[Rfam]
RNA sequence: GGCUAGUAAUGCAUGAUCAAUUUGUCCGUACCAUCUAAGACUCUGUCUUUGACGAAUGCUCAAAUUCUUAAAUCUGAGGCCU
Numbered sequence: 001g002g003c004u005a006g007u008a009a010u011g012c013a014u015g016a017u018c019a020a021u022u023u024g025u026c027c028g029u030a031c032c033a034u035c036u037a038a039g040a041c042u043c044u045g046u047c048u049u050u051g052a053c054g055a056a057u058g059c060u061c062a063a064a065u066u067c068u069u070a071a072a073u074c075u076g077a078g079g080c081c082u
Base pairs, nucleotide, nucleotide: 001081002080003079004078

small nucleolar RNA snoR117: an 82-nucleotide RNA from Vigna angularis.
NCBI's taxonomy places the organism under Eukaryota, Pentapetalae, rosids, Papilionoideae, Vigna angularis.
By type it is a C/D-box small nucleolar RNA.
Pairs were carried over by alignment from the consensus structure, which was predicted with RNAalifold.
Rfam links the family to the GO terms nucleolus and RNA processing.
A reference for the family is Chen and Wu (2009), "Mining small RNA sequencing data: a new approach to identify small nucleolar RNAs in Arabidopsis", Nucleic Acids Res.